The record is a 56-nucleotide sequence from Parvularcula maris, which matches "Whalefall-1 RNA" in Rfam. A search with the family's covariance model found it, with a score of 38 bits. The family's RNA type in Rfam is small RNA.
Nucleotides: 056
Stems, first nucleotide, its partner, number of pairs: 004022007025046009
Number, partner (000 for none) and nucleotide at each position: 001000c002000c003000a004022c005021c006020u007019c008018u009017c010016c011000c012000u013000c014000c015000g016010g017009g018008a019007g020006a021005g022004g023000u024000c025046g026045a027044a028043g029042c030041c031040u032039g033038c034000u035000g036000c037000g038033g039032c040031a041030g042029g043028c044027u045026u046025c047000g048000g049000g050000u051000g052000a053000g054000g055000g056000c